[Rfam]
RNA sequence: AAUUAACUUCUUGGUGUCUUAUGAUGAAGCUUCAUAGGGCAGAUUCUGAGUUGAGAAAUAAAAUUUCUCUCCACUGAUCCUCUCUAUGCCAUCUGAAGACACUAUAUAUUGC
Numbered sequence: 001a002a003u004u005a006a007c008u009u010c011u012u013g014g015u016g017u018c019u020u021a022u023g024a025u026g027a028a029g030c031u032u033c034a035u036a037g038g039g040c041a042g043a044u045u046c047u048g049a050g051u052u053g054a055g056a057a058a059u060a061a062a063a064u065u066u067c068u069c070u071c072c073a074c075u076g077a078u079c080c081u082c083u084c085u086a087u088g089c090c091a092u093c094u095g096a097a098g099a100c101a102c103u104a105u106a107u108a109u110u111g112c
Base pairs, nucleotide, nucleotide: 012104013103014102015101016100017099018098019097029092033088034087035086036083038082039081042078045077046076048074050072053069054068055067056066057065

A member of the RNA family "Small nucleolar RNA SNORD90" from Sitta europaea, 112 nucleotides long. The family has 18 seed sequences and 545 matches in Rfam 15.1. A search with the family's covariance model found it, with a score of 56 bits. Rfam's curators write: snoRNA HBII-295 belongs to the family of C/D snoRNAs. NCBI's taxonomy places the organism under Eukaryota, Craniata, Aves, Passeriformes, Sitta. By type it is a C/D-box small nucleolar RNA. The literature on the family includes a 2001 paper in EMBO J by Huttenhofer et al., "RNomics: an experimental approach that identifies 201 candidates for novel, small, non-messenger RNAs in mouse".